[Rfam]
RNA sequence: GUCUGACACGGUCCUACGGUAGCCAGUCUGGCUCCGACGUUUGGACGAGGCGCGAUGAC
Numbered sequence: 001g002u003c004u005g006a007c008a009c010g011g012u013c014c015u016a017c018g019g020u021a022g023c024c025a026g027u028c029u030g031g032c033u034c035c036g037a038c039g040u041u042u043g044g045a046c047g048a049g050g051c052g053c054g055a056u057g058a059c
Stems, first nucleotide, its partner, number of pairs: 007049001009047002012044002016041001018035002021033005
Dot-bracket structure: ......(.((.((..(.((.(((((...))))))).....).)).)).)..........
This 59-nucleotide RNA from Oxalicibacterium flavum belongs to the Rfam family "Selenocysteine insertion sequence 3". The base pairs follow the family's consensus structure, which was predicted with CMfinder. It is annotated as a cis-regulatory element. On this family, see Huttenhofer et al., RNA 1996: "Solution structure of mRNA hairpins promoting selenocysteine incorporation in Escherichia coli and their base-specific interaction with special elongation factor SELB".